[Rfam]
RNA sequence: CUCUUAUUACGAGCGGCGGAGGGAAUAGGCCCGAUGAAGCCCGGCAACCAGCAGAUGAAUUAUCUGAAAAGGUGCUACAUCCUACAGGUUUUCUAAACCUGGAAAAUAAGAG
Numbered sequence: 001c002u003c004u005u006a007u008u009a010c011g012a013g014c015g016g017c018g019g020a021g022g023g024a025a026u027a028g029g030c031c032c033g034a035u036g037a038a039g040c041c042c043g044g045c046a047a048c049c050a051g052c053a054g055a056u057g058a059a060u061u062a063u064c065u066g067a068a069a070a071g072g073u074g075c076u077a078c079a080u081c082c083u084a085c086a087g088g089u090u091u092u093c094u095a096a097a098c099c100u101g102g103a104a105a106a107u108a109a110g111a112g
Base pairs, nucleotide, nucleotide: 001112002111003110004109005108006107007106008105013042015041016040017039021032022031023030026084027083028082029081043076044075045074046073048072049071052066053065054064055063080104085101086100087099088098089097090096